[Rfam]
RNA: DUF805b RNA
RNA sequence: ACCCGGGAAGCCGAAAACGGGAUAUAGAGUAGGCA
Numbered sequence: 001a002c003c004c005g006g007g008a009a010g011c012c013g014a015a016a017a018c019g020g021g022a023u024a025u026a027g028a029g030u031a032g033g034c035a
Stems, first nucleotide, its partner, number of pairs: 002021004010034003